[Rfam]
Record summary
The family of this 118-nucleotide RNA from Neobacillus piezotolerans is "ylbH leader". By type it is a cis-regulatory leader. Its family is annotated with regulation of gene expression in the Gene Ontology. This family is a putative regulatory RNA structure that is found upstream of the ylbH gene in B. subtilis and related low GC Gram-positive bacteria.
RNA sequence: AAGAAAAAAACCCCGCAGGAAUCCUGCGGGGUCCUUCUAUAUCCCACUGGGGACAGAAGGCAAAGGGAGAGGAGAAACCGGAGGAAAACUUAUGGGGAAACGUAAGUUUUCUCCGCGG
Numbered sequence: 001a002a003g004a005a006a007a008a009a010a011c012c013c014c015g016c017a018g019g020a021a022u023c024c025u026g027c028g029g030g031g032u033c034c035u036u037c038u039a040u041a042u043c044c045c046a047c048u049g050g051g052g053a054c055a056g057a058a059g060g061c062a063a064a065g066g067g068a069g070a071g072g073a074g075a076a077a078c079c080g081g082a083g084g085a086a087a088a089c090u091u092a093u094g095g096g097g098a099a100a101c102g103u104a105a106g107u108u109u110u111c112u113c114c115g116c117g118g
Stems, first nucleotide, its partner, number of pairs: 011031009032067005042053004079115004084111009

The pairing is the family consensus, mapped onto this sequence. For this family Rfam cites "New RNA motifs suggest an expanded scope for riboswitches in bacterial genetic control" (Barrick et al., Proc Natl Acad Sci U S A, 2004).